[Rfam]
RNA sequence: GGCCUAAAGCGUCCGUAGCCGGGCUGGUAAGUCCUCCGGGAAAUCUGGCGGCUUAACCGUCAGACUGCCGGAGGAUACUGCCAGCCUAGGGACCGGGAGAGGCCGGGGGUAUUCCCGGAGUAGGGGUGAAAUCCUGUAAUCCCGGGAGGACCACCUGUGGCGAAGGCGCCCGGCUGGAACGGGUCCGACGGUGAGGGACGAAGGCCAGGGGAGCGAACCGGAUUAGAUACCCGGGUAGUCCUGGCUGUAAACGAUGCGGACUAGGUGUCACCGAAGCUACGAGCUUCGGUGGUGCCGGAGGGAAGCCGUUAAGUCCGCCGCCUGGGGAGUACGGCCGCAAGGCUGAAACUUAAAGGAAU
Numbered sequence: 001g002g003c004c005u006a007a008a009g010c011g012u013c014c015g016u017a018g019c020c021g022g023g024c025u026g027g028u029a030a031g032u033c034c035u036c037c038g039g040g041a042a043a044u045c046u047g048g049c050g051g052c053u054u055a056a057c058c059g060u061c062a063g064a065c066u067g068c069c070g071g072a073g074g075a076u077a078c079u080g081c082c083a084g085c086c087u088a089g090g091g092a093c094c095g096g097g098a099g100a101g102g103c104c105g106g107g108g109g110u111a112u113u114c115c116c117g118g119a120g121u122a123g124g125g126g127u128g129a130a131a132u133c134c135u136g137u138a139a140u141c142c143c144g145g146g147a148g149g150a151c152c153a154c155c156u157g158u159g160g161c162g163a164a165g166g167c168g169c170c171c172g173g174c175u176g177g178a179a180c181g182g183g184u185c186c187g188a189c190g191g192u193g194a195g196g197g198a199c200g201a202a203g204g205c206c207a208g209g210g211g212a213g214c215g216a217a218c219c220g221g222a223u224u225a226g227a228u229a230c231c232c233g234g235g236u237a238g239u240c241c242u243g244g245c246u247g248u249a250a251a252c253g254a255u256g257c258g259g260a261c262u263a264g265g266u267g268u269c270a271c272c273g274a275a276g277c278u279a280c281g282a283g284c285u286u287c288g289g290u291g292g293u294g295c296c297g298g299a300g301g302g303a304a305g306c307c308g309u310u311a312a313g314u315c316c317g318c319c320g321c322c323u324g325g326g327g328a329g330u331a332c333g334g335c336c337g338c339a340a341g342g343c344u345g346a347a348a349c350u351u352a353a354a355g356g357a358a359u
Base pairs, nucleotide, nucleotide: 001322002321003320009319011199012198013197014196016193018192019191020190022086023085024084025083026082027081028080030079031078032075033074034073035072036071037070038069039068045063046062047061048060049059050058051057090186091185092184093182094181095180101175102174103173104172105171106170107169108152109151112148113147114146115145116144117143118142123134124133125132160167161166204245205244206243207242208241209240213239214238218234219233220232221231256318257317258316259315260314261313264296265295266294267293268292269291270290271289272288273287274286275285276284277283300307301306324351325350326349333344334343335342336341